[Rfam]
Shown here is a 130-nucleotide RNA from Oxalobacteraceae bacterium IMCC9480, a member of the family "Guanidine-I riboswitch aptamer". It scores 84 bits against the family's covariance model. Lineage of the source: Bacteria > Pseudomonadati > Betaproteobacteria > Burkholderiales > Oxalobacteraceae. The family has 100 seed sequences and 1,509 matches in Rfam 15.1.
RNA sequence: GAGCAUGGACGCUAGGGUUCCGGUGUCGUCAGUAGUAAUGGCGACAUGUCUGGUCCGAGAGCAGCCGGCCGGUGCGACAUCGUGCAAGCGAUCAGCACCGGCUACACGGAGGGAUAAAAGCCCGGGAGGC
Numbered sequence: 001g002a003g004c005a006u007g008g009a010c011g012c013u014a015g016g017g018u019u020c021c022g023g024u025g026u027c028g029u030c031a032g033u034a035g036u037a038a039u040g041g042c043g044a045c046a047u048g049u050c051u052g053g054u055c056c057g058a059g060a061g062c063a064g065c066c067g068g069c070c071g072g073u074g075c076g077a078c079a080u081c082g083u084g085c086a087a088g089c090g091a092u093c094a095g096c097a098c099c100g101g102c103u104a105c106a107c108g109g110a111g112g113g114a115u116a117a118a119a120g121c122c123c124g125g126g127a128g129g130c
Stems, first nucleotide, its partner, number of pairs: 007066002011062002015056002020053002022050001023047009067103008105125001107128001111123003